Notes: Shown here is a 330-nucleotide sequence from Fukomys damarensis, a member of the family "Nuclear RNase P". The literature on the family includes a 1998 paper in Annu Rev Biochem by Frank and Pace, "Ribonuclease P: unity and diversity in a tRNA processing ribozyme".

[Rfam]
RNA sequence: GGCGGAGGGAAGCUCAUCAGUGGGGCUACAAGCUGAGUGCGUCGCGUCACUCUACAAGAAACCCUUGGGAAGGUCUGAGACUAGGGCCAAAAGCGGCUCUAACAGGGCUCUCCCUGAGCUUCCGGGGAGGUGAGUUCCCAGAGAGCGGGGCUCCGCGCGAGGGCAGACUGGGCAGGAGAUGCCAAAACCCGCCCCCUGGGGUUGGGCCUGGCGGAUGCCUCCUUAGCCGGAGCUUGGAACAGACUCACGGCCGGCCAAGUGAGUUCAAUGGCUGAGGUGAGGCACUGCAAGCCGGGCCUCAUAACCUAAUUCAGACUACUCUCCCCCGCC
Numbered sequence: 001g002g003c004g005g006a007g008g009g010a011a012g013c014u015c016a017u018c019a020g021u022g023g024g025g026c027u028a029c030a031a032g033c034u035g036a037g038u039g040c041g042u043c044g045c046g047u048c049a050c051u052c053u054a055c056a057a058g059a060a061a062c063c064c065u066u067g068g069g070a071a072g073g074u075c076u077g078a079g080a081c082u083a084g085g086g087c088c089a090a091a092a093g094c095g096g097c098u099c100u101a102a103c104a105g106g107g108c109u110c111u112c113c114c115u116g117a118g119c120u121u122c123c124g125g126g127g128a129g130g131u132g133a134g135u136u137c138c139c140a141g142a143g144a145g146c147g148g149g150g151c152u153c154c155g156c157g158c159g160a161g162g163g164c165a166g167a168c169u170g171g172g173c174a175g176g177a178g179a180u181g182c183c184a185a186a187a188c189c190c191g192c193c194c195c196c197u198g199g200g201g202u203u204g205g206g207c208c209u210g211g212c213g214g215a216u217g218c219c220u221c222c223u224u225a226g227c228c229g230g231a232g233c234u235u236g237g238a239a240c241a242g243a244c245u246c247a248c249g250g251c252c253g254g255c256c257a258a259g260u261g262a263g264u265u266c267a268a269u270g271g272c273u274g275a276g277g278u279g280a281g282g283c284a285c286u287g288c289a290a291g292c293c294g295g296g297c298c299u300c301a302u303a304a305c306c307u308a309a310u311u312c313a314g315a316c317u318a319c320u321c322u323c324c325c326c327c328g329c330c
Stems, first nucleotide, its partner, number of pairs: 001330004008324003013276004018271001022065004035052005040046001075314005085252004095109005110129006130248007150233006277302007